[Rfam]
Notes: This 86-nucleotide sequence from Ipomoea nil belongs to the Rfam family "Small nucleolar RNA R11/Z151". Its family is annotated with nucleolus and RNA processing in the Gene Ontology.
RNA sequence: GGGCUUAUGAUGAUAAAACAACAUAUCUUAGCGGAUUUCAGUGAGAUAAUUCAUCAAUGAUCUCAUUGUUACACACACUGAAGCCC
Numbered sequence: 001g002g003g004c005u006u007a008u009g010a011u012g013a014u015a016a017a018a019c020a021a022c023a024u025a026u027c028u029u030a031g032c033g034g035a036u037u038u039c040a041g042u043g044a045g046a047u048a049a050u051u052c053a054u055c056a057a058u059g060a061u062c063u064c065a066u067u068g069u070u071a072c073a074c075a076c077a078c079u080g081a082a083g084c085c086c
Stems, first nucleotide, its partner, number of pairs: 001086005
Dot-bracket structure: (((((............................................................................)))))

The literature on the family includes a 2001 paper in J Mol Biol by Barneche et al., "Identification of 66 box C/D snoRNAs in Arabidopsis thaliana: extensive gene duplications generated multiple isoforms predicting new ribosomal RNA 2'-O-methylation sites". The match comes from Rfam's covariance-model search (84 bits). Lineage of the source: Eukaryota > Spermatophyta > Pentapetalae > Convolvulaceae > Ipomoea.